[Rfam]
The record is a 120-nucleotide sequence from Glycine max, which matches "MIR1520 microRNA precursor family" in Rfam. Rfam 15.1 lists 1,934 matches to the family in 15 species. The family's consensus secondary structure was predicted with RNAalifold.

RNA sequence: UGUCACUUGGAUGAUGACUGUCACGUAUCAUGUUCUGAUUGAAUGUCAACCCCAUGAAAGAUGAAAUGCAUUAUUGGUUUCAUUGACCAAUCAGAAUAUGACACGUGGUAGUCAUCAUCC
Numbered sequence: 001u002g003u004c005a006c007u008u009g010g011a012u013g014a015u016g017a018c019u020g021u022c023a024c025g026u027a028u029c030a031u032g033u034u035c036u037g038a039u040u041g042a043a044u045g046u047c048a049a050c051c052c053c054a055u056g057a058a059a060g061a062u063g064a065a066a067u068g069c070a071u072u073a074u075u076g077g078u079u080u081c082a083u084u085g086a087c088c089a090a091u092c093a094g095a096a097u098a099u100g101a102c103a104c105g106u107g108g109u110a111g112u113c114a115u116c117a118u119c120c
Stems, first nucleotide, its partner, number of pairs: 020109004025104002029100003033096004038091003